Record summary: Rfam assigns this 125-nucleotide sequence from Stegastes partitus to the family "Small nucleolar RNA SNORA65". The family has 14 seed sequences and 1,089 matches in Rfam 15.1. The literature on the family includes a 2001 paper in EMBO J by Huttenhofer et al., "RNomics: an experimental approach that identifies 201 candidates for novel, small, non-messenger RNAs in mouse". Rfam classes the family as an H/ACA-box small nucleolar RNA. The match comes from Rfam's covariance-model search (90 bits). U65 belongs to the H/ACA class of snoRNAs which are thought to guide the sites of modification of uridines to pseudouridines. The family is grouped with related families in Rfam's "SNORA65 clan". Pairs were carried over by alignment from the consensus structure, which was predicted with RNAalifold.
Nucleotides: 125
Stems, first nucleotide, its partner, number of pairs: 005045005018032001060118004064113004069107002074103006082095003
Number, partner (000 for none) and nucleotide at each position: 001000c002000c003000c004000g005045c006044c007043a008042c009041u010000a011000c012000g013000c014000c015000u016000g017000u018032c019000c020000a021000a022000c023000g024000g025000u026000g027000a028000c029000u030000g031000a032018g033000u034000g035000u036000a037000a038000u039000c040000c041009a042008g043007u044006g045005g046000a047000g048000g049000c050000u051000c052000a053000g054000a055000g056000c057000g058000a059000c060118c061117c062116g063115g064113c065112u066111u067110u068000a069107g070106g071000a072000a073000a074103c075102a076101g077100a078099g079098c080000u081000g082095c083094u084093c085000g086000c087000g088000c089000c090000g091000a092000u093084g094083g095082g096000c097000c098079g099078c100077u101076c102075u103074g104000u105000g106070c107069c108000g109000a110067a111066a112065a113064g114000u115063c116062c117061g118060g119000a120000a121000c122000a123000a124000g125000u